Description: L25-Gammaproteobacteria ribosomal protein leader: a 26-nucleotide sequence from Erwinia sp. Leaf53. The literature on the family includes a 2020 paper in BMC Microbiol by Eckert and Weinberg, "Discovery of 20 novel ribosomal leader candidates in bacteria and archaea".
RNA sequence: CCUGCUGAUGGGUCGCCUUUAGCAGG
Numbered sequence: 001c002c003u004g005c006u007g008a009u010g011g012g013u014c015g016c017c018u019u020u021a022g023c024a025g026g
Base pairs, nucleotide, nucleotide: 001026002025003024004023005022006021007020008019010017011016